RNA sequence: CCGUUAUCACGAAAGGCAGAGGGAAUAGACCCGUUGAAGCCUUAGCAACCCUUUAUCUUUAAAGAAGGUGCUAAAUUCUACCAAACCCACGUGCGGAUAGAUAACAC
Numbered sequence: 001c002c003g004u005u006a007u008c009a010c011g012a013a014a015g016g017c018a019g020a021g022g023g024a025a026u027a028g029a030c031c032c033g034u035u036g037a038a039g040c041c042u043u044a045g046c047a048a049c050c051c052u053u054u055a056u057c058u059u060u061a062a063a064g065a066a067g068g069u070g071c072u073a074a075a076u077u078c079u080a081c082c083a084a085a086c087c088c089a090c091g092u093g094c095g096g097a098u099a100g101a102u103a104a105c106a107c
Base pairs, nucleotide, nucleotide: 003105004104005103006102007101008100013043014042015041016040017039021032022031023030026080027079028078029077044072045071046070047069049068050067051064052063053062054061076099081096082095085092086091
The family of this 107-nucleotide RNA from Flavobacterium album is "SAM riboswitch aptamer (S box leader)". NCBI's taxonomy places the organism under Bacteria, Pseudomonadati, Bacteroidota, Flavobacteriaceae, Flavobacterium. Rfam links the family to the GO term regulation of gene expression.